[Rfam]
RNA sequence: ACACACUUCUUCAUAUGCCCAUAGGGAGCUGCCCGAACUAUGGAAUGUUAAGAAGUGUGUGU
Numbered sequence: 001a002c003a004c005a006c007u008u009c010u011u012c013a014u015a016u017g018c019c020c021a022u023a024g025g026g027a028g029c030u031g032c033c034c035g036a037a038c039u040a041u042g043g044a045a046u047g048u049u050a051a052g053a054a055g056u057g058u059g060u061g062u
Stems, first nucleotide, its partner, number of pairs: 001060011013048004019043005
Shown here is a 62-nucleotide RNA from Ornithorhynchus anatinus, a member of the family "mir-1 microRNA precursor family". Lineage of the source: Eukaryota > Teleostomi > Dipnotetrapodomorpha > Amniota > Ornithorhynchus. The base pairs follow the family's consensus structure, which was predicted with RNAalifold. This family represents the microRNA (miRNA) mir-1 family. miRNAs are transcribed as ~70nt precursors (modelled here) and subsequently processed by the Dicer enzyme to give a ~22nt product. In this case the mature sequence comes from the 3' arm of the precursor. The extents of the hairpin precursors are not generally known and are estimated based on hairpin prediction. Rfam links the family to the GO terms RISC complex and miRNA-mediated post-transcriptional gene silencing. For this family Rfam cites "An extensive class of small RNAs in Caenorhabditis elegans" (Lee and Ambros, Science, 2001).